tRNA: a 99-nucleotide RNA sequence from Microdochium trichocladiopsis. The base pairs follow the family's consensus structure, which is taken from published work. The source organism's lineage runs through Eukaryota, Ascomycota, saccharomyceta, Xylariales and Microdochium. A search with the family's covariance model found it, with a score of 58 bits.
RNA sequence: GCCCGGGUAGCUCAAUUGGUCAGAGCGUCGGACUUUUACAACUACCCCUUCCGAGGGCCUGUAAUCCGAAGGCUGGGGGUUCGAGACCCCCUUCGGGCG
Number, nucleotide and partner (000 for none) at each position: 001g098002c097003c096004c095005g094006g093007g092008u000009a000010g026011c025012u024013c023014a000015a000016u000017u000018g000019g000020u000021c000022a000023g013024a012025g011026c010027g000028u069029c068030g067031g066032a065033c000034u000035u000036u000037u000038a000039c000040a000041a000042c000043u000044a000045c000046c000047c000048c000049u000050u000051c000052c000053g000054a000055g000056g000057g000058c000059c000060u000061g000062u000063a000064a000065u032066c031067c030068g029069a028070a000071g000072g000073c000074u000075g091076g090077g089078g088079g087080u000081u000082c000083g000084a000085g000086a000087c079088c078089c077090c076091c075092u007093u006094c005095g004096g003097g002098c001099g000